[Rfam]
RNA sequence: GAUCAAUGAUGAAAAUAUCCUAAUCUGAGCAUCAGAGGCCUUCCAGUCUGUCUAAUGCAUGAUCUUUAUAAUUCUAAGA
Numbered sequence: 001g002a003u004c005a006a007u008g009a010u011g012a013a014a015a016u017a018u019c020c021u022a023a024u025c026u027g028a029g030c031a032u033c034a035g036a037g038g039c040c041u042u043c044c045a046g047u048c049u050g051u052c053u054a055a056u057g058c059a060u061g062a063u064c065u066u067u068a069u070a071a072u073u074c075u076a077a078g079a
Base pairs, nucleotide, nucleotide: 029058030057031056032055036049037048038047039046
Description
The record is a 79-nucleotide RNA from Nyctereutes procyonoides, which matches "Small nucleolar RNA U2-19" in Rfam. By type it is a C/D-box small nucleolar RNA. The literature on the family includes a 2004 paper in Curr Biol by Tycowski et al., "Guide RNAs with 5' Caps and Novel Box C/D snoRNA-like Domains for Modification of snRNAs in Metazoa". NCBI's taxonomy places the organism under Eukaryota, Metazoa, Mammalia, Carnivora, Nyctereutes.